[Rfam]
Rfam assigns this 79-nucleotide RNA sequence from Xenopus tropicalis to the family "mir-132 microRNA precursor family".
RNA sequence: CUCCAGGGCAACCGUGGCUUUAGAUUGUUACUGUAGUUCUGCAUUGGUAACAGUCUACAGCCAUGGUCGCUCGGGCAAG
Numbered sequence: 001c002u003c004c005a006g007g008g009c010a011a012c013c014g015u016g017g018c019u020u021u022a023g024a025u026u027g028u029u030a031c032u033g034u035a036g037u038u039c040u041g042c043a044u045u046g047g048u049a050a051c052a053g054u055c056u057a058c059a060g061c062c063a064u065g066g067u068c069g070c071u072c073g074g075g076c077a078a079g
Stems, first nucleotide, its partner, number of pairs: 012066002015063004023055010
Annotation: It is one of the family's seed sequences. Rfam links the family to the GO terms RISC complex and miRNA-mediated post-transcriptional gene silencing. For this family Rfam cites "The developmental miRNA profiles of zebrafish as determined by small RNA cloning" (Chen et al., Genes Dev, 2005).